[Rfam]
RNA: c-di-AMP riboswitch aptamer (ydaO/yuaA leader)
Organism: Streptomyces seoulensis
RNA sequence: CCCACUCACGAACUCAUUCGUACGGCAGGAGCGGGGGACCCAGGUAAGCCGCCGGACCGGUGCGACCCAUGUCGCGCCGGGACGGCUAGGGGUGAAGCCGAAAUCGUCCCCGGUGUCCGACGGGCACCGGGGACGACGCGGCCGGGCACCUCCCCGCCCGAACCCGACAGCUCACCUCGCAGGCGACGGAGAGGAAACAC
Numbered sequence: 001c002c003c004a005c006u007c008a009c010g011a012a013c014u015c016a017u018u019c020g021u022a023c024g025g026c027a028g029g030a031g032c033g034g035g036g037g038a039c040c041c042a043g044g045u046a047a048g049c050c051g052c053c054g055g056a057c058c059g060g061u062g063c064g065a066c067c068c069a070u071g072u073c074g075c076g077c078c079g080g081g082a083c084g085g086c087u088a089g090g091g092g093u094g095a096a097g098c099c100g101a102a103a104u105c106g107u108c109c110c111c112g113g114u115g116u117c118c119g120a121c122g123g124g125c126a127c128c129g130g131g132g133a134c135g136a137c138g139c140g141g142c143c144g145g146g147c148a149c150c151u152c153c154c155c156g157c158c159c160g161a162a163c164c165c166g167a168c169a170g171c172u173c174a175c176c177u178c179g180c181a182g183g184c185g186a187c188g189g190a191g192a193g194g195a196a197a198c199a200c
Stems, first nucleotide, its partner, number of pairs: 001183002006030002031180006041089001090165003098141003144159004